A member of the RNA family "Small nucleolar RNA SNORD16" from Dreissena polymorpha, 100 nucleotides long. The organism belongs to Dreissena, within Eukaryota. On this family, see Huttenhofer et al., EMBO J 2001: "RNomics: an experimental approach that identifies 201 candidates for novel, small, non-messenger RNAs in mouse". The family's consensus secondary structure was predicted with PFOLD.
[Rfam]
RNA sequence: AGCAAUGAUGUUUGUAAUUUGAGUCAGAUGACAAGUUAGGUGACAGUUGCAUUCUGUCAUAUGCCUUAUUGUCUAAAUGAUGAUGACAUUGUACUGAGCU
Numbered sequence: 001a002g003c004a005a006u007g008a009u010g011u012u013u014g015u016a017a018u019u020u021g022a023g024u025c026a027g028a029u030g031a032c033a034a035g036u037u038a039g040g041u042g043a044c045a046g047u048u049g050c051a052u053u054c055u056g057u058c059a060u061a062u063g064c065c066u067u068a069u070u071g072u073c074u075a076a077a078u079g080a081u082g083a084u085g086a087c088a089u090u091g092u093a094c095u096g097a098g099c100u
Stems, first nucleotide, its partner, number of pairs: 001100003023081003031072004040064002042058005